[Rfam]
RNA sequence: AACGACCGGCCGGACACCUACGUGCCCGGCCCACAAGUGGAGGCUCCGUUCUCCCACCUGACCGUCCUCACGGGCGGCGGGUCACCGGUCAGGUGGCGCCCAUCGUUCCGUACGGACGAUGGAGCCGCCCGAUGUGCGCCCCGCGGUUGACCGCGCGGUGCUCCGGUUUUCCAUGGAGCCCCGCCUGUGUCCCGUCCGGGGCAUUUUUC
Numbered sequence: 001a002a003c004g005a006c007c008g009g010c011c012g013g014a015c016a017c018c019u020a021c022g023u024g025c026c027c028g029g030c031c032c033a034c035a036a037g038u039g040g041a042g043g044c045u046c047c048g049u050u051c052u053c054c055c056a057c058c059u060g061a062c063c064g065u066c067c068u069c070a071c072g073g074g075c076g077g078c079g080g081g082u083c084a085c086c087g088g089u090c091a092g093g094u095g096g097c098g099c100c101c102a103u104c105g106u107u108c109c110g111u112a113c114g115g116a117c118g119a120u121g122g123a124g125c126c127g128c129c130c131g132a133u134g135u136g137c138g139c140c141c142c143g144c145g146g147u148u149g150a151c152c153g154c155g156c157g158g159u160g161c162u163c164c165g166g167u168u169u170u171c172c173a174u175g176g177a178g179c180c181c182c183g184c185c186u187g188u189g190u191c192c193c194g195u196c197c198g199g200g201g202c203a204u205u206u207u208u209c
Stems, first nucleotide, its partner, number of pairs: 004090006012027002028083005034060002037057004041052002062077006092129005100122008138202006144194003152189002155184004160179005

Record summary: The record is a 209-nucleotide RNA sequence from Streptomyces showdoensis, which matches "Streptomyces RNA 1601" in Rfam. The match comes from Rfam's covariance-model search (174 bits). The organism belongs to Streptomyces, within Bacteria. Identified by deep sequencing of transcriptome at the end of exponential growth phase.